[Rfam]
RNA sequence: GUGCAUCCAGCAGGAAUUGACCUACGAAUUUGCCAAUUAUGAGGGGGCAGCUUUAACCUUUCAGCCAUGGAUGC
Numbered sequence: 001g002u003g004c005a006u007c008c009a010g011c012a013g014g015a016a017u018u019g020a021c022c023u024a025c026g027a028a029u030u031u032g033c034c035a036a037u038u039a040u041g042a043g044g045g046g047g048c049a050g051c052u053u054u055a056a057c058c059u060u061u062c063a064g065c066c067a068u069g070g071a072u073g074c
Stems, first nucleotide, its partner, number of pairs: 003074006010025001012023003039068003043065001046062002049059002

A member of the RNA family "Plastid-ycf2 5UTR RNA" from Musa balbisiana, 74 nucleotides long. Lineage of the source: Eukaryota > Viridiplantae > Euphyllophyta > commelinids > Musa. Pairs were carried over by alignment from the consensus structure, which was predicted with LocARNA. About the family: Plastid ycf2 is a non-coding RNA (ncRNA) recognised in plastids. It was found in the prime untranslated region (5UTR) of ycf2 genes, it presents a tRNA-like motif which suggests it can be involved in mRNA maturation, particularly involved in defining the precise 5' end of the transcript. A reference for the family is Richter et al. (2023), "Retrograde signaling in plants: A critical review focusing on the GUN pathway and beyond", Plant Commun. Rfam classes the family as a cis-regulatory element.